[Rfam]
RNA sequence: GGAUGUGAGGGCGAUCUGGCUGCGACAUCUGUCACCCCAUUGAUCGCCAGGGUUGAUUCGGCUGAUCUGGCUGGCUAGGCGGGUGUCCCCUUCCUCCCUCACCGCUCCAUGUGCGUCCCUCCCGAAGCUGCGCGCUCGGUCGAAGAGGACGACCAUCCCCGAUAAAGGAGGACCAGUCUUCAGUCAAGGGUAUACGAGUAGCUGCGCUCCCCUGCUAGAACCUCCAAACAAGCUCUCAAGGAAGGAAUUAGAAAUAAGAAGGAAAUCCAUCAAGAACCAAGGAAAUACUUUUUCCCUGUUUGUCUU
Numbered sequence: 001g002g003a004u005g006u007g008a009g010g011g012c013g014a015u016c017u018g019g020c021u022g023c024g025a026c027a028u029c030u031g032u033c034a035c036c037c038c039a040u041u042g043a044u045c046g047c048c049a050g051g052g053u054u055g056a057u058u059c060g061g062c063u064g065a066u067c068u069g070g071c072u073g074g075c076u077a078g079g080c081g082g083g084u085g086u087c088c089c090c091u092u093c094c095u096c097c098c099u100c101a102c103c104g105c106u107c108c109a110u111g112u113g114c115g116u117c118c119c120u121c122c123c124g125a126a127g128c129u130g131c132g133c134g135c136u137c138g139g140u141c142g143a144a145g146a147g148g149a150c151g152a153c154c155a156u157c158c159c160c161g162a163u164a165a166a167g168g169a170g171g172a173c174c175a176g177u178c179u180u181c182a183g184u185c186a187a188g189g190g191u192a193u194a195c196g197a198g199u200a201g202c203u204g205c206g207c208u209c210c211c212c213u214g215c216u217a218g219a220a221c222c223u224c225c226a227a228a229c230a231a232g233c234u235c236u237c238a239a240g241g242a243a244g245g246a247a248u249u250a251g252a253a254a255u256a257a258g259a260a261g262g263a264a265a266u267c268c269a270u271c272a273a274g275a276a277c278c279a280a281g282g283a284a285a286u287a288c289u290u291u292u293u294c295c296c297u298g299u300u301u302g303u304c305u306u
Base pairs, nucleotide, nucleotide: 001108002107003106005102006101007100008099009098010097011096013093014092018090019089024087025086026085027084028083029082030081031080032079033078035074036073037070038069039068042067043066044065045064046062047061048060116171117170118168119167120166122139123138124137125136127135128134140162141161142160147158148157149156201271203269211262212261213260215258223253225251228249230248
The record is a 306-nucleotide RNA sequence from Saimiri boliviensis, which matches "7SK RNA" in Rfam.
7SK was discovered as an abundant small nuclear RNA in the mid-70s but a possible function has only recently been suggested. Two independent studies have found that 7SK RNA binds the CDK9/cyclin T complex (known as elongation factor P-TEFb). P-TEFb activates transcription by phosphorylating the C-terminal domain of RNA polymerase II. This process is negatively regulated by the 7SK RNP. The secondary structure of 7SK RNA shown here was proposed by Wasserman and Steitz on the basis of chemical modification and enzymatic cleavage experiments. This family contains a number of annotated pseudogenes and 7SK derived repeats.
The base pairs follow the family's consensus structure, which is taken from published work.
NCBI's taxonomy places the organism under Eukaryota, Chordata, Primates, Platyrrhini, Saimiri boliviensis.